The family of this 241-nucleotide RNA sequence from Sporolactobacillus inulinus is "BsrG". Lineage of the source: Bacteria > Bacillati > Bacilli > Caryophanales > Sporolactobacillus. Rfam describes the family as follows. bsrE, bsrG and bsrH pair through intermolecular interactions with antisense sRNAs. They form type I toxin/antitoxin system that includes an mRNA encoding for a short, toxic peptide (bsrE, bsrG and bsrH) and an antitoxin that is comprised of an antisense RNA. bsrG encodes a 39-amino-acid toxin, and the 180 nucleotide antisense sRNA called SR4 acts as the antitoxin (they overlap by 123 nucleotides). It is annotated as a small RNA.

RNA sequence: GCGAAAUGGCUAGCGGUGACACCCUUGUGAAAGGGGGUGCGGCCAAUGACAGUAUUUCAAGCAAUAACAUUAAUGAUCAGUUUUGGCGUGCUUAUCUUGAUGCUGUCAGACAUAAAGAAAUAAUCCGCCUCAUAUGCUUCUGCAGGAGCUGAGACGGAUUAUCCCGUUGUGGUUAUGAAAUUUCAGCAUUGCUCCGCUCUACGCGGAUAUUGCCAUGCCGUCAGUGUUCAUAGCACUGGCG
Numbered sequence: 001g002c003g004a005a006a007u008g009g010c011u012a013g014c015g016g017u018g019a020c021a022c023c024c025u026u027g028u029g030a031a032a033g034g035g036g037g038u039g040c041g042g043c044c045a046a047u048g049a050c051a052g053u054a055u056u057u058c059a060a061g062c063a064a065u066a067a068c069a070u071u072a073a074u075g076a077u078c079a080g081u082u083u084u085g086g087c088g089u090g091c092u093u094a095u096c097u098u099g100a101u102g103c104u105g106u107c108a109g110a111c112a113u114a115a116a117g118a119a120a121u122a123a124u125c126c127g128c129c130u131c132a133u134a135u136g137c138u139u140c141u142g143c144a145g146g147a148g149c150u151g152a153g154a155c156g157g158a159u160u161a162u163c164c165c166g167u168u169g170u171g172g173u174u175a176u177g178a179a180a181u182u183u184c185a186g187c188a189u190u191g192c193u194c195c196g197c198u199c200u201a202c203g204c205g206g207a208u209a210u211u212g213c214c215a216u217g218c219c220g221u222c223a224g225u226g227u228u229c230a231u232a233g234c235a236c237u238g239g240c241g
Stems, first nucleotide, its partner, number of pairs: 001213004006208002008193002013128004020039007048107007062075002086098001088096001140186003194206004219241010